[Rfam]
RNA sequence: UGAACCAAUUAAUAAUAACUAUGAAUACAAUUUUAAAUAAUACUUGGUGGUGGAGCUUACUAAACUUACGUUUCGUGAAGUAAAACCUUAGUAUAUUUAAAACUUAAAAUAUCCAAAAGGCUUGUC
Numbered sequence: 001u002g003a004a005c006c007a008a009u010u011a012a013u014a015a016u017a018a019c020u021a022u023g024a025a026u027a028c029a030a031u032u033u034u035a036a037a038u039a040a041u042a043c044u045u046g047g048u049g050g051u052g053g054a055g056c057u058u059a060c061u062a063a064a065c066u067u068a069c070g071u072u073u074c075g076u077g078a079a080g081u082a083a084a085a086c087c088u089u090a091g092u093a094u095a096u097u098u099a100a101a102a103c104u105u106a107a108a109a110u111a112u113c114c115a116a117a118a119g120g121c122u123u124g125u126c
Stems, first nucleotide, its partner, number of pairs: 036098002040094005046088002050086002057083001059081003063073002
Overview: Shown here is a 126-nucleotide sequence from Mariniflexile fucanivorans, a member of the family "Bacteroidete tryptophan peptide leader RNA". Rfam links the family to the GO terms regulation of gene expression and S-adenosylmethionine metabolic process. The family's RNA type in Rfam is cis-regulatory leader. A search with the family's covariance model found it, with a score of 65 bits.